RNA sequence: GUACGUGCUCCGGGGUCGGUGAAAGUCCGAGCCGGCGGUGACAGUCCGCGACCCGGUCCACGGCGCCUCACGGCGUCAGGACCGGUUGACCUGGUGGAACUCCAGGACCGACGGUGAAAGUCCGGAUGGGAGGAAGCACGUGG
Numbered sequence: 001g002u003a004c005g006u007g008c009u010c011c012g013g014g015g016u017c018g019g020u021g022a023a024a025g026u027c028c029g030a031g032c033c034g035g036c037g038g039u040g041a042c043a044g045u046c047c048g049c050g051a052c053c054c055g056g057u058c059c060a061c062g063g064c065g066c067c068u069c070a071c072g073g074c075g076u077c078a079g080g081a082c083c084g085g086u087u088g089a090c091c092u093g094g095u096g097g098a099a100c101u102c103c104a105g106g107a108c109c110g111a112c113g114g115u116g117a118a119a120g121u122c123c124g125g126a127u128g129g130g131a132g133g134a135a136g137c138a139c140g141u142g143g
Base pairs, nucleotide, nucleotide: 003141004140005139006138007137008136009135010132017029018028019027031121032120033110034109035049036048037047038046044108045107053085054084055083056082057081058080059079090106091105092104093103094102112124113123114122

Rfam assigns this 143-nucleotide RNA from Actinotalea soli to the family "FMN riboswitch aptamer (RFN element)". NCBI's taxonomy places the organism under Bacteria, Bacillati, Actinomycetes, Cellulomonadaceae, Actinotalea. The RFN element is a highly conserved domain that is found frequently in the 5'-untranslated regions of prokaryotic mRNAs that encode for flavin mononucleotide (FMN) biosynthesis and transport proteins. This element is a metabolite-dependent riboswitch that directly binds FMN in the absence of proteins. In Bacillus subtilis, the riboswitch most likely controls gene expression by causing premature transcription termination within the 5' untranslated region of the ribDEAHT operon and precluding access to the ribosome-binding site of ypaA mRNA.The FMN riboswitch structure, reported in present an FMN-bound six-stem junction, adopts a butterfly-like scaffold, stapled together by opposingly directed but nearly identically folded peripheral domains. It scores 88 bits against the family's covariance model. The literature on the family includes a 2002 paper in Nucleic Acids Res by Vitreschak et al., "Regulation of riboflavin biosynthesis and transport genes in bacteria by transcriptional and translational attenuation".